[Rfam]
RNA sequence: GAAUUGAUGGUGAUUCCAAAUCAGUCAUUCCUUGGAAAGCUGAACAAAGUAAAUAAAAAUGCCCCACUAUCGCUCUGGUCAUGACUGAGGUUC
Numbered sequence: 001g002a003a004u005u006g007a008u009g010g011u012g013a014u015u016c017c018a019a020a021u022c023a024g025u026c027a028u029u030c031c032u033u034g035g036a037a038a039g040c041u042g043a044a045c046a047a048a049g050u051a052a053a054u055a056a057a058a059a060u061g062c063c064c065c066a067c068u069a070u071c072g073c074u075c076u077g078g079u080c081a082u083g084a085c086u087g088a089g090g091u092u093c
Stems, first nucleotide, its partner, number of pairs: 001093005027054003032047003